[Rfam]
Record summary:
Rfam assigns this 82-nucleotide sequence from Microcebus murinus to the family "mir-1179 microRNA precursor family".
RNA sequence: CCAAAAAGGAAGAAGCAUUCUCUCAUUGGUUGGCGUGUGUUGCUUUGUCAACCAAUGAGAGAAUGCCAUUUAUCCUUGUCUG
Numbered sequence: 001c002c003a004a005a006a007a008g009g010a011a012g013a014a015g016c017a018u019u020c021u022c023u024c025a026u027u028g029g030u031u032g033g034c035g036u037g038u039g040u041u042g043c044u045u046u047g048u049c050a051a052c053c054a055a056u057g058a059g060a061g062a063a064u065g066c067c068a069u070u071u072a073u074c075c076u077u078g079u080c081u082g
Stems, first nucleotide, its partner, number of pairs: 004079001006077005012071003015066009025056011

The base pairs follow the family's consensus structure, which was predicted with RNAalifold.